The record is a 101-nucleotide RNA from Paenibacillus sp. MY03, which matches "Purine riboswitch aptamer" in Rfam. A search with the family's covariance model found it, with a score of 70 bits. Lineage of the source: Bacteria > Bacillati > Bacillota > Bacilli > Paenibacillus. The base pairs follow the family's consensus structure, which is taken from published work.
[Rfam]
RNA sequence: AACAACCGCAUAGGAACUUUUCGUAUAAUCUCAAGAAUCGGCUUGAGAGUCUCUACUCGGUCACCGUAAAUGAUCAGGCUACGAAAAGGGUGAAGAAAGCA
Numbered sequence: 001a002a003c004a005a006c007c008g009c010a011u012a013g014g015a016a017c018u019u020u021u022c023g024u025a026u027a028a029u030c031u032c033a034a035g036a037a038u039c040g041g042c043u044u045g046a047g048a049g050u051c052u053c054u055a056c057u058c059g060g061u062c063a064c065c066g067u068a069a070a071u072g073a074u075c076a077g078g079c080u081a082c083g084a085a086a087a088g089g090g091u092g093a094a095g096a097a098a099g100c101a
Stems, first nucleotide, its partner, number of pairs: 018087008029048007057077001059075005